[Rfam]
RNA: Mammalian CPEB3 ribozyme
RNA sequence: GGUUGCAAGUUUGAGGCCAUAGCAGAAGUGCUCACAGUGCAACCUGUCAGAUCCAAGGAAUCUGAAAAUUCUGCU
Numbered sequence: 001g002g003u004u005g006c007a008a009g010u011u012u013g014a015g016g017c018c019a020u021a022g023c024a025g026a027a028g029u030g031c032u033c034a035c036a037g038u039g040c041a042a043c044c045u046g047u048c049a050g051a052u053c054c055a056a057g058g059a060a061u062c063u064g065a066a067a068a069u070u071c072u073g074c075u
Stems, first nucleotide, its partner, number of pairs: 015044002021075007028040003048064005054058001